Shown here is a 104-nucleotide RNA from Molossus molossus, a member of the family "Vault RNA". The match comes from Rfam's covariance-model search (69 bits).
RNA sequence: GGGCUGGCUUUGGCUCAGCAGUUCCUUCGCACUGGGCUUUCAGCUUGCUAACCACUCUUGCCACGAGGGUGGUUCGAGACCCGCGGGUGCUCUCCAGCCCUUUA
Number, nucleotide and partner (000 for none) at each position: 001g000002g099003g098004c097005u096006g095007g094008c000009u000010u000011u000012g000013g088014c087015u086016c085017a000018g084019c083020a000021g081022u000023u000024c000025c000026u078027u077028c076029g075030c000031a000032c000033u000034g000035g000036g000037c000038u000039u000040u000041c000042a000043g000044c000045u000046u000047g000048c000049u000050a000051a000052c000053c000054a000055c000056u000057c000058u000059u000060g000061c000062c000063a000064c000065g000066a000067g000068g000069g000070u000071g000072g000073u000074u000075c029076g028077a027078g026079a000080c000081c021082c000083g019084c018085g016086g015087g014088u013089g000090c000091u000092c000093u000094c007095c006096a005097g004098c003099c002100c000101u000102u000103u000104a000